[Rfam]
RNA sequence: GAAACACCCCUAUGGAGCAGGACUUGCUUCAGUGGGGCUUUGGUGCUCACUGAGUCUGUCCCUUGAGUGUCUUAUG
Numbered sequence: 001g002a003a004a005c006a007c008c009c010c011u012a013u014g015g016a017g018c019a020g021g022a023c024u025u026g027c028u029u030c031a032g033u034g035g036g037g038c039u040u041u042g043g044u045g046c047u048c049a050c051u052g053a054g055u056c057u058g059u060c061c062c063u064u065g066a067g068u069g070u071c072u073u074a075u076g
Base pairs, nucleotide, nucleotide: 001075003073004072006070007069009067011065012064014062015061017059018058019057021056022055023054029053030052031051032050033049034048035047036046037044038043

A member of the RNA family "mir-9229 microRNA precursor family" from Cnephaeus nilssonii, 76 nucleotides long.
Taxonomically the source falls in Cnephaeus (Eukaryota, Eumetazoa, Bilateria, Mammalia).
Rfam 15.1 lists 27,225 matches to the family in 9 species.